[Rfam]
RNA: MIR2630 microRNA precursor family
RNA sequence: UUUAGUUUUGGUCCUUGAUAUUUUGUUUUAAUCAUUGUAAAAUUAUUUCAUAUUGAAAUUGGUCCCUAUAAUAUUCACUUUAGUCCUCAUUUUGAGGGACUAAAAUCAAAUAUUCUACAUAUUAUAAGGACCAAAUCCAAUAUGAAUCAAUUUUACAAAAACUAAAACAAAACACCAAGGAUCAAAACCAAA
Numbered sequence: 001u002u003u004a005g006u007u008u009u010g011g012u013c014c015u016u017g018a019u020a021u022u023u024u025g026u027u028u029u030a031a032u033c034a035u036u037g038u039a040a041a042a043u044u045a046u047u048u049c050a051u052a053u054u055g056a057a058a059u060u061g062g063u064c065c066c067u068a069u070a071a072u073a074u075u076c077a078c079u080u081u082a083g084u085c086c087u088c089a090u091u092u093u094g095a096g097g098g099a100c101u102a103a104a105a106u107c108a109a110a111u112a113u114u115c116u117a118c119a120u121a122u123u124a125u126a127a128g129g130a131c132c133a134a135a136u137c138c139a140a141u142a143u144g145a146a147u148c149a150a151u152u153u154u155a156c157a158a159a160a161a162c163u164a165a166a167a168c169a170a171a172a173c174a175c176c177a178a179g180g181a182u183c184a185a186a187a188c189c190a191a192a
Stems, first nucleotide, its partner, number of pairs: 001192002005188012019174001021172010032161001035158009047146002050143006059134007069124006089106005